[Rfam]
RNA sequence: GACCCUGGGGAAGAAAUAAAUUUAGCUAUUUCUUCUCAUGAAGUUUUUCAGAGGGGGAAGAACAACGAGGUGAAACCUGGACUGAAGGGAU
Numbered sequence: 001g002a003c004c005c006u007g008g009g010g011a012a013g014a015a016a017u018a019a020a021u022u023u024a025g026c027u028a029u030u031u032c033u034u035c036u037c038a039u040g041a042a043g044u045u046u047u048u049c050a051g052a053g054g055g056g057g058a059a060g061a062a063c064a065a066c067g068a069g070g071u072g073a074a075a076c077c078u079g080g081a082c083u084g085a086a087g088g089g090a091u
Stems, first nucleotide, its partner, number of pairs: 003089004